Rfam assigns this 102-nucleotide RNA from Giardia duodenalis to the family "Giardia U6 spliceosomal RNA". The family's RNA type in Rfam is spliceosomal small nuclear RNA. Taxonomically the source falls in Giardia duodenalis (Eukaryota, Diplomonadida, Giardiinae, Giardia).
RNA sequence: GUUAACAAAAACAGAGACAGUUAGCACCAGCUUCAGUCUAGAGUCGCUGGGGGACCUCUGGUUUCGCGGGAGCCCGUUGGCGCGUGCUUGCACCCCGCUCCU
Numbered sequence: 001g002u003u004a005a006c007a008a009a010a011a012c013a014g015a016g017a018c019a020g021u022u023a024g025c026a027c028c029a030g031c032u033u034c035a036g037u038c039u040a041g042a043g044u045c046g047c048u049g050g051g052g053g054a055c056c057u058c059u060g061g062u063u064u065c066g067c068g069g070g071a072g073c074c075c076g077u078u079g080g081c082g083c084g085u086g087c088u089u090g091c092a093c094c095c096c097g098c099u100c101c102u
Stems, first nucleotide, its partner, number of pairs: 027050005032043003066098005072081003084093003

Rfam links the family to the GO terms pre-mRNA 5'-splice site binding, mRNA 5'-splice site recognition and U1 snRNP. On this family, see Hudson et al., Nucleic Acids Res 2012: "Evolutionarily divergent spliceosomal snRNAs and a conserved non-coding RNA processing motif in Giardia lamblia".